RNA sequence: AGAGCAACAAUGAUGUUACAUCCAUCUUAACUCAUCCUUGCACUAUGAGUCCAACGGUGAAGAAAGAAAUUGGGGAAUAUGUAGUCUGAGAUGCUC
Numbered sequence: 001a002g003a004g005c006a007a008c009a010a011u012g013a014u015g016u017u018a019c020a021u022c023c024a025u026c027u028u029a030a031c032u033c034a035u036c037c038u039u040g041c042a043c044u045a046u047g048a049g050u051c052c053a054a055c056g057g058u059g060a061a062g063a064a065a066g067a068a069a070u071u072g073g074g075g076a077a078u079a080u081g082u083a084g085u086c087u088g089a090g091a092u093g094c095u096c
Stems, first nucleotide, its partner, number of pairs: 002096005008090001

Notes: A member of the RNA family "Small nucleolar RNA snoR26" from Oryza brachyantha, 96 nucleotides long. For this family Rfam cites "Multiple snoRNA gene clusters from Arabidopsis" (Brown et al., RNA, 2001). The match comes from Rfam's covariance-model search (76 bits). The base pairs follow the family's consensus structure, which was predicted with WAR.